The record is a 162-nucleotide sequence from Herbiconiux ginsengi, which matches "FMN riboswitch aptamer (RFN element)" in Rfam. A search with the family's covariance model found it, with a score of 78 bits. The source organism's lineage runs through Bacteria, Bacillati, Actinomycetes, Micrococcales and Herbiconiux.
[Rfam]
RNA sequence: AACGUGCUCCGGGGUCAGUGAGAUUCUGAACCGGCGGUUAUAGUCCGCGAGCCGAAGGCCUGCUGUUCGCAGUGGGGUGAGGUUGAUCUGGUGGAAUUCCAGAACCGACGGUAAUGGCAGUGCCGCAAGGCCUGUCCAAGUCCGGAUGGGAGGAUGCACGGA
Number, nucleotide and partner (000 for none) at each position: 001a000002a000003c160004g159005u158006g157007c156008u154009c153010c152011g000012g000013g000014g000015u000016c028017a027018g026019u000020g000021a000022g000023a000024u000025u000026c018027u017028g016029a000030a000031c000032c107033g106034g048035c047036g046037g045038u000039u000040a000041u000042a000043g105044u104045c037046c036047g035048c034049g000050a000051g083052c082053c081054g000055a000056a000057g000058g000059c000060c000061u000062g000063c000064u000065g000066u000067u000068c000069g000070c000071a000072g000073u000074g000075g000076g000077g000078u000079g000080a000081g053082g052083u051084u000085g000086a000087u103088c102089u101090g100091g099092u000093g000094g000095a000096a000097u000098u000099c091100c090101a089102g088103a087104a044105c043106c033107g032108a000109c144110g143111g142112u000113a000114a000115u000116g000117g000118c000119a000120g000121u000122g000123c000124c000125g000126c000127a000128a000129g000130g000131c000132c000133u000134g000135u000136c000137c000138a000139a000140g000141u000142c111143c110144g109145g000146a000147u000148g000149g000150g000151a000152g010153g009154a008155u000156g007157c006158a005159c004160g003161g000162a000